[Rfam]
RNA sequence: GAGUCCGUGUCCUAAAACCAGUCCCAGCAGACAAAACAUAGUAUGGUCGAGUGUUUUGUUUGCUUGGGACUGCAGUUAGGGCGCGUAAAC
Numbered sequence: 001g002a003g004u005c006c007g008u009g010u011c012c013u014a015a016a017a018c019c020a021g022u023c024c025c026a027g028c029a030g031a032c033a034a035a036a037c038a039u040a041g042u043a044u045g046g047u048c049g050a051g052u053g054u055u056u057u058g059u060u061u062g063c064u065u066g067g068g069a070c071u072g073c074a075g076u077u078a079g080g081g082c083g084c085g086u087a088a089a090c
Stems, first nucleotide, its partner, number of pairs: 004087001006085010019072008027063012
RNA: mir-BART19 microRNA precursor family